[Rfam]
RNA sequence: AACAAAACUAAAUAUGUUUUUCAUAUAAUCGUAGGGAUAUGGCCUACAAGUUUCUACCCGUUUACCGUAAAUGAACUGACUAUGAAAAGCAGAAUAGAAUAG
Numbered sequence: 001a002a003c004a005a006a007a008c009u010a011a012a013u014a015u016g017u018u019u020u021u022c023a024u025a026u027a028a029u030c031g032u033a034g035g036g037a038u039a040u041g042g043c044c045u046a047c048a049a050g051u052u053u054c055u056a057c058c059c060g061u062u063u064a065c066c067g068u069a070a071a072u073g074a075a076c077u078g079a080c081u082a083u084g085a086a087a088a089g090c091a092g093a094a095u096a097g098a099a100u101a102g
Stems, first nucleotide, its partner, number of pairs: 018088008029049001031047005058078001060076005
This 102-nucleotide sequence from Bacillus sp. B1-b2 belongs to the Rfam family "Purine riboswitch aptamer". Lineage of the source: Bacteria > Bacillota > Bacilli > Caryophanales > Bacillus. The family's consensus secondary structure is taken from published work.